[Rfam]
The family of this 83-nucleotide RNA sequence from Cnephaeus nilssonii is "mir-9243 microRNA precursor family". The source organism's lineage runs through Eukaryota, Metazoa, Bilateria, Sarcopterygii and Cnephaeus. The family has 2 seed sequences and 31 matches in Rfam 15.1. The match comes from Rfam's covariance-model search (89 bits).
RNA sequence: CCGUGCACGAAUUUCGUGCACCGGGCCUCUAGUAUAAAAUAUAAUAAUACUAGAGGCCCAGUGCAUGAAAUUUGUGCAUGGGG
Numbered sequence: 001c002c003g004u005g006c007a008c009g010a011a012u013u014u015c016g017u018g019c020a021c022c023g024g025g026c027c028u029c030u031a032g033u034a035u036a037a038a039a040u041a042u043a044a045u046a047a048u049a050c051u052a053g054a055g056g057c058c059c060a061g062u063g064c065a066u067g068a069a070a071u072u073u074g075u076g077c078a079u080g081g082g083g
Stems, first nucleotide, its partner, number of pairs: 001081002004078008013069003017065005023059013
Pairs were carried over by alignment from the consensus structure, which was predicted with RNAalifold.